The record is a 101-nucleotide RNA from Pseudonaja textilis, which matches "Vault RNA" in Rfam.
Rfam classes the family as a non-coding RNA gene.
The source organism's lineage runs through Eukaryota, Vertebrata, Dipnotetrapodomorpha, Sauropsida and Pseudonaja.
This family of RNAs are found as part of the enigmatic vault ribonucleoprotein complex.

[Rfam]
RNA sequence: GAGCAUAUGCUCAUACCUAGCGGUUCCUUCAAUAUUUGCUAAUUCAUGUUCAACUCUAGUUCCUAGCAGUUCAAGUCCCGCGGGCACUGUCUGGCUUUUUU
Numbered sequence: 001g002a003g004c005a006u007a008u009g010c011u012c013a014u015a016c017c018u019a020g021c022g023g024u025u026c027c028u029u030c031a032a033u034a035u036u037u038g039c040u041a042a043u044u045c046a047u048g049u050u051c052a053a054c055u056c057u058a059g060u061u062c063c064u065a066g067c068a069g070u071u072c073a074a075g076u077c078c079c080g081c082g083g084g085c086a087c088u089g090u091c092u093g094g095c096u097u098u099u100u101u
Base pairs, nucleotide, nucleotide: 002096003095004094006093007092009091016084017083018082020081021080022079023078028075029074032071